Shown here is a 120-nucleotide RNA sequence from Glycine max, a member of the family "Small nucleolar RNA U19".
A search with the family's covariance model found it, with a score of 66 bits.
The family has 3 seed sequences and 421 matches in Rfam 15.1.
[Rfam]
RNA sequence: ACGCGGCUUAGUUAGGAGGCGCACAUCAAUCGGAACUAAAUUCACGUUUGCUUCCAUUCAGAGAUAGGCCUUUUGAAGGGACUCUGAUAUCAUUUGUCCCUCAAGCAGCCUUUCACAUUU
Numbered sequence: 001a002c003g004c005g006g007c008u009u010a011g012u013u014a015g016g017a018g019g020c021g022c023a024c025a026u027c028a029a030u031c032g033g034a035a036c037u038a039a040a041u042u043c044a045c046g047u048u049u050g051c052u053u054c055c056a057u058u059c060a061g062a063g064a065u066a067g068g069c070c071u072u073u074u075g076a077a078g079g080g081a082c083u084c085u086g087a088u089a090u091c092a093u094u095u096g097u098c099c100c101u102c103a104a105g106c107a108g109c110c111u112u113u114c115a116c117a118u119u120u
Stems, first nucleotide, its partner, number of pairs: 004021002007018003033054003037050001063114002066111004072105004077101006